[Rfam]
RNA sequence: CUACUCCCUCCGUAAACUAAUAUAAGAACGUUUAGAUCACUAUUUUAGUAAUCUAAACGUUCUUAUAUUAGUUUAUAGAGGGAGUAC
Numbered sequence: 001c002u003a004c005u006c007c008c009u010c011c012g013u014a015a016a017c018u019a020a021u022a023u024a025a026g027a028a029c030g031u032u033u034a035g036a037u038c039a040c041u042a043u044u045u046u047a048g049u050a051a052u053c054u055a056a057a058c059g060u061u062c063u064u065a066u067a068u069u070a071g072u073u074u075a076u077a078g079a080g081g082g083a084g085u086a087c
Stems, first nucleotide, its partner, number of pairs: 003085003007081004013075005019069019039049003